[Rfam]
RNA sequence: GAGAGGGGAGGGACGGCUGCCGCCUUUUAGGUGAGGAAAGUCCCCCCACCACCUGGACACGCAAAUGCCCGUAAGGGCAUACGGCGAGAGCCGUGGCAAUGGCACAGAAACGAUACGGAGCCGGGUUAAUGCUAUGAUUCGGAUACGAUGAGGCCGCCCGUGCGCCGAUGAAACGGUGAAUCCUUGCGGGUGCAAGCUGGAGCGGGCCGCUGAAGGGAGUCCAGCCCUUGGCCCCGGUAGAAGCGCUUAGAUGAAUGCCGUCGGCCUUCGGGCCAUGAACAUAAGGGGGCUUACUAUCCCGACUC
Numbered sequence: 001g002a003g004a005g006g007g008g009a010g011g012g013a014c015g016g017c018u019g020c021c022g023c024c025u026u027u028u029a030g031g032u033g034a035g036g037a038a039a040g041u042c043c044c045c046c047c048a049c050c051a052c053c054u055g056g057a058c059a060c061g062c063a064a065a066u067g068c069c070c071g072u073a074a075g076g077g078c079a080u081a082c083g084g085c086g087a088g089a090g091c092c093g094u095g096g097c098a099a100u101g102g103c104a105c106a107g108a109a110a111c112g113a114u115a116c117g118g119a120g121c122c123g124g125g126u127u128a129a130u131g132c133u134a135u136g137a138u139u140c141g142g143a144u145a146c147g148a149u150g151a152g153g154c155c156g157c158c159c160g161u162g163c164g165c166c167g168a169u170g171a172a173a174c175g176g177u178g179a180a181u182c183c184u185u186g187c188g189g190g191u192g193c194a195a196g197c198u199g200g201a202g203c204g205g206g207c208c209g210c211u212g213a214a215g216g217g218a219g220u221c222c223a224g225c226c227c228u229u230g231g232c233c234c235c236g237g238u239a240g241a242a243g244c245g246c247u248u249a250g251a252u253g254a255a256u257g258c259c260g261u262c263g264g265c266c267u268u269c270g271g272g273c274c275a276u277g278a279a280c281a282u283a284a285g286g287g288g289g290c291u292u293a294c295u296a297u298c299c300c301g302a303c304u305c
Stems, first nucleotide, its partner, number of pairs: 001305003006300004010295002012262006021033005038292003042289005047192004054224001056222001060188005065080005081094005095183002100179001102177002116167003120163002122160005139148002196244003204234005
Overview
The record is a 305-nucleotide RNA sequence from Methanocella conradii, which matches "Archaeal RNase P" in Rfam. Its family is annotated with ribonuclease P activity, multimeric ribonuclease P complex and tRNA processing in the Gene Ontology. Rfam classes the family as a ribozyme. The base pairs follow the family's consensus structure, which is taken from published work. Rfam describes the family as follows. Ribonuclease P (RNase P) is a ubiquitous endoribonuclease, found in archaea, bacteria and eukarya as well as chloroplasts and mitochondria. Its best characterised activity is the generation of mature 5'-ends of tRNAs by cleaving the 5'-leader elements of precursor-tRNAs. Cellular RNase Ps are ribonucleoproteins. The family is grouped with related families in Rfam's "RNaseP clan". It scores 195 bits against the family's covariance model.